[Rfam]
Rfam assigns this 138-nucleotide sequence from Physcomitrium patens to the family "MIR1222 microRNA precursor family".
RNA sequence: CGGCGAGCGUGAAAAAACUUGCUACAAUCAUUUUCGUACCAGUGCGUUCCUCCAAACCACCACGCUCACGUUGAUGCGAAGUUGGUCUGAAGGAGUUCAUUGGUACACAAAUCAUAAGAGCAUGGAGGACCGGAGAAU
Numbered sequence: 001c002g003g004c005g006a007g008c009g010u011g012a013a014a015a016a017a018c019u020u021g022c023u024a025c026a027a028u029c030a031u032u033u034u035c036g037u038a039c040c041a042g043u044g045c046g047u048u049c050c051u052c053c054a055a056a057c058c059a060c061c062a063c064g065c066u067c068a069c070g071u072u073g074a075u076g077c078g079a080a081g082u083u084g085g086u087c088u089g090a091a092g093g094a095g096u097u098c099a100u101u102g103g104u105a106c107a108c109a110a111a112u113c114a115u116a117a118g119a120g121c122a123u124g125g126a127g128g129a130c131c132g133g134a135g136a137a138u
Base pairs, nucleotide, nucleotide: 020122021121022120023119027115028114030112031111032110033109036106037105038104039103040102041101042100043099044098046096047095048094049093050092051091053089054088057084059082060081063078064077065076
Taxonomically the source falls in Physcomitrium (Eukaryota, Viridiplantae, Streptophytina, Funariidae). The sequence is in the family's curated seed alignment. The family's consensus secondary structure was predicted with RNAalifold. On this family, see Axtell et al., Plant Cell 2007: "Common functions for diverse small RNAs of land plants".